[Rfam]
RNA sequence: GGGGUCGUUAUGGAUUCGACGGGUAUGGUUCGUGCCUGAACUGCAUUUCGUACUGCGAUGCGUUAAAUCGUCCAGUUCAUUAUAACUGCAAAAAAUAAUAACAAUUCUUACGCCUUAGCUGCCUAAAAACAGUCGACGUAGAUCCAUCUAAUCUCGUCCAUGGAUUAGUAAUGGGUCCUAACUUAAGUGGACUCACGCUCCUCUGCCCACAUCUGAGGUAGAGAGAAGAGAUUAAUCAGAUUAGCUUUUCAUAUUAGCCUUGAUUAAUGGCGUCAUGAAAAGUGAACUUUAAAUAAUUGAUCUAUAAAUGUAGACGUUCAGGUGGCGACAUACUCGGACGCGGGUUCAAAUCCCGCCGACUCCAUUU
Numbered sequence: 001g002g003g004g005u006c007g008u009u010a011u012g013g014a015u016u017c018g019a020c021g022g023g024u025a026u027g028g029u030u031c032g033u034g035c036c037u038g039a040a041c042u043g044c045a046u047u048u049c050g051u052a053c054u055g056c057g058a059u060g061c062g063u064u065a066a067a068u069c070g071u072c073c074a075g076u077u078c079a080u081u082a083u084a085a086c087u088g089c090a091a092a093a094a095a096u097a098a099u100a101a102c103a104a105u106u107c108u109u110a111c112g113c114c115u116u117a118g119c120u121g122c123c124u125a126a127a128a129a130c131a132g133u134c135g136a137c138g139u140a141g142a143u144c145c146a147u148c149u150a151a152u153c154u155c156g157u158c159c160a161u162g163g164a165u166u167a168g169u170a171a172u173g174g175g176u177c178c179u180a181a182c183u184u185a186a187g188u189g190g191a192c193u194c195a196c197g198c199u200c201c202u203c204u205g206c207c208c209a210c211a212u213c214u215g216a217g218g219u220a221g222a223g224a225g226a227a228g229a230g231a232u233u234a235a236u237c238a239g240a241u242u243a244g245c246u247u248u249u250c251a252u253a254u255u256a257g258c259c260u261u262g263a264u265u266a267a268u269g270g271c272g273u274c275a276u277g278a279a280a281a282g283u284g285a286a287c288u289u290u291a292a293a294u295a296a297u298u299g300a301u302c303u304a305u306a307a308a309u310g311u312a313g314a315c316g317u318u319c320a321g322g323u324g325g326c327g328a329c330a331u332a333c334u335c336g337g338a339c340g341c342g343g344g345u346u347c348a349a350a351u352c353c354c355g356c357c358g359a360c361u362c363c364a365u366u367u
Stems, first nucleotide, its partner, number of pairs: 001363007020336008029327001033324009044310005049062004055071003114138001116136001118134001119132003141177006148168007156192006196225001198223003203218002211242001214239001244283009257271003262302004340356005
Background
The record is a 367-nucleotide RNA sequence from Fructilactobacillus lindneri, which matches "transfer-messenger RNA" in Rfam. The base pairs follow the family's consensus structure, which is taken from published work. The source organism's lineage runs through Bacteria, Bacillati, Lactobacillales, Fructilactobacillus and Fructilactobacillus lindneri. The literature on the family includes a 2002 paper in Nucleic Acids Res by Williams, "The tmRNA Website: invasion by an intron". Bacterial tmRNA, also known as 10Sa RNA or SsrA, is named for its dual tRNA and mRNA-like properties.